[Rfam]
RNA sequence: GGUCCGACACCGCCGAGUCGCAGUCCAAGCGAGCCGGGGAACCAGGUUUUCCGGGGUGAGUCCGCGAUGGUCGCGGUAGGGCGUCCCGGGUGCCCGAACCCGUCAGCUAACCCGGUAGGCGGUCUGGGAAGAAUGG
Numbered sequence: 001g002g003u004c005c006g007a008c009a010c011c012g013c014c015g016a017g018u019c020g021c022a023g024u025c026c027a028a029g030c031g032a033g034c035c036g037g038g039g040a041a042c043c044a045g046g047u048u049u050u051c052c053g054g055g056g057u058g059a060g061u062c063c064g065c066g067a068u069g070g071u072c073g074c075g076g077u078a079g080g081g082c083g084u085c086c087c088g089g090g091u092g093c094c095c096g097a098a099c100c101c102g103u104c105a106g107c108u109a110a111c112c113c114g115g116u117a118g119g120c121g122g123u124c125u126g127g128g129a130a131g132a133a134u135g136g
Base pairs, nucleotide, nucleotide: 011121012120013119014118018032019031020030033116034115035114036113037112038111043053054101055100056099062076063075064074065073079095080094081093082092
Record summary
This 136-nucleotide sequence from Micromonospora craniellae belongs to the Rfam family "c-di-AMP riboswitch aptamer (ydaO/yuaA leader)". Taxonomically the source falls in Micromonospora (Bacteria, Actinomycetes, Micromonosporales, Micromonosporaceae). This family represents a conserved RNA structure found upstream of the ydaO and yuaA genes in Bacillus subtilis and related genes in other bacteria. A search with the family's covariance model found it, with a score of 88 bits.